A member of the RNA family "Ruegeria cis2 sRNA" from Paracoccus salipaludis, 152 nucleotides long. The base pairs follow the family's consensus structure, which was predicted with RNAfold. By type it is a small RNA. The match comes from Rfam's covariance-model search (82 bits).
[Rfam]
RNA sequence: UUCGAGUUGUGGGGCGUGUAGUUGAUGAAGACGAAGCCCCGGUUCUGGUCGAUCAGGUGGAACAGCGGGUUCCAGUCGAACAGGUUCAGCAUGUAGGUCGGCAUCAUGUUGGCCACGAACAUCUUGCCCGAGGCGAUCAUGUUCACCCGCCG
Numbered sequence: 001u002u003c004g005a006g007u008u009g010u011g012g013g014g015c016g017u018g019u020a021g022u023u024g025a026u027g028a029a030g031a032c033g034a035a036g037c038c039c040c041g042g043u044u045c046u047g048g049u050c051g052a053u054c055a056g057g058u059g060g061a062a063c064a065g066c067g068g069g070u071u072c073c074a075g076u077c078g079a080a081c082a083g084g085u086u087c088a089g090c091a092u093g094u095a096g097g098u099c100g101g102c103a104u105c106a107u108g109u110u111g112g113c114c115a116c117g118a119a120c121a122u123c124u125u126g127c128c129c130g131a132g133g134c135g136a137u138c139a140u141g142u143u144c145a146c147c148c149g150c151c152g
Base pairs, nucleotide, nucleotide: 002034003033004032007029008028013023014022040051041050042049043048063152065150066149067148069081070080071079072078086145088143089142090141091140092139093138098132099130100129101128102126103125106122107121109118110117111116

The literature on the family includes a 2016 paper in Front Microbiol by Rivers et al., "Experimental Identification of Small Non-Coding RNAs in the Model Marine Bacterium Ruegeria pomeroyi DSS-3".